The record is a 124-nucleotide sequence from Paenibacillus tyrphae, which matches "azaaromatic riboswitch aptamer (yjdF RNA)" in Rfam. A search with the family's covariance model found it, with a score of 64 bits.
RNA sequence: GAAGUCGAGCGUAAAAUCGCGGUCCGGUUGGUAGCCCGGAUGCACGGGAUCUCCCGCUUUUCGGAGAUGCAAGCCCGUGUCAUAUCCUUCCCCCCUCGGGAUGUCCAUCGCUCGCAAGAUGUAA
Numbered sequence: 001g002a003a004g005u006c007g008a009g010c011g012u013a014a015a016a017u018c019g020c021g022g023u024c025c026g027g028u029u030g031g032u033a034g035c036c037c038g039g040a041u042g043c044a045c046g047g048g049a050u051c052u053c054c055c056g057c058u059u060u061u062c063g064g065a066g067a068u069g070c071a072a073g074c075c076c077g078u079g080u081c082a083u084a085u086c087c088u089u090c091c092c093c094c095c096u097c098g099g100g101a102u103g104u105c106c107a108u109c110g111c112u113c114g115c116a117a118g119a120u121g122u123a124a
Base pairs, nucleotide, nucleotide: 006114007113008112009111010110011109022041023040024039025038026037027036042080043079044078045077046076047075089101090100091099092098